[Rfam]
RNA sequence: UUGCUGUGAUGAUGAUCUUAGGACACCUUUCGAACAACCGUGAAAAAAAAUCCCACAUCUAUUCUGAGCGAC
Number, nucleotide and partner (000 for none) at each position: 001u071002u070003g069004c068005u000006g000007u000008g000009a000010u000011g000012a000013u000014g000015a000016u000017c000018u000019u000020a000021g000022g000023a000024c000025a000026c000027c000028u000029u000030u000031c000032g000033a000034a000035c000036a000037a000038c000039c000040g000041u000042g000043a000044a000045a000046a000047a000048a000049a000050a000051u000052c000053c000054c000055a000056c000057a000058u000059c000060u000061a000062u000063u000064c000065u000066g000067a000068g004069c003070g002071a001072c000
Shown here is a 72-nucleotide RNA from Strigops habroptila, a member of the family "Small nucleolar RNA SNORD58". The family is grouped with related families in Rfam's "SNORD58 clan". From the family's description: snoRNA U58 is found in introns 1, 3 and 6 of the ribosomal protein RPL17 gene in humans. On this family, see Galardi et al., Mol Cell Biol 2002: "Purified box C/D snoRNPs are able to reproduce site-specific 2'-O-methylation of target RNA in vitro". Rfam links the family to the GO terms nucleolus and RNA processing.